[Rfam]
RNA sequence: CCACGUUCCGACGUCAUCCCCCCCGGCGUCGGAACGUUCCAGAGCCGGGCCCCGGCGCCUACCCCCCCAGGCGCCGGGCCCGGCUUCAUG
Numbered sequence: 001c002c003a004c005g006u007u008c009c010g011a012c013g014u015c016a017u018c019c020c021c022c023c024c025g026g027c028g029u030c031g032g033a034a035c036g037u038u039c040c041a042g043a044g045c046c047g048g049g050c051c052c053c054g055g056c057g058c059c060u061a062c063c064c065c066c067c068c069a070g071g072c073g074c075c076g077g078g079c080c081c082g083g084c085u086u087c088a089u090g
Stems, first nucleotide, its partner, number of pairs: 005035006012028003042086010053076008